This 86-nucleotide RNA from Oryza glumipatula belongs to the Rfam family "MIR2275 microRNA precursor family". A search with the family's covariance model found it, with a score of 66 bits. Rfam 15.1 lists 785 matches to the family in 111 species. Lineage of the source: Eukaryota > Spermatophyta > Mesangiospermae > Oryzoideae > Oryza.

RNA sequence: CCAUUUGAAAUGAGGAUUAGAGGAAACUGAACCUUUUGAUAUUCAUCAAAAUGGUUCAGUUCCCUCUAAUAUCUCACUUUGAAUGG
Numbered sequence: 001c002c003a004u005u006u007g008a009a010a011u012g013a014g015g016a017u018u019a020g021a022g023g024a025a026a027c028u029g030a031a032c033c034u035u036u037u038g039a040u041a042u043u044c045a046u047c048a049a050a051a052u053g054g055u056u057c058a059g060u061u062c063c064c065u066c067u068a069a070u071a072u073c074u075c076a077c078u079u080u081g082a083a084u085g086g
Stems, first nucleotide, its partner, number of pairs: 004083005011076004016070006023063001025061006032054002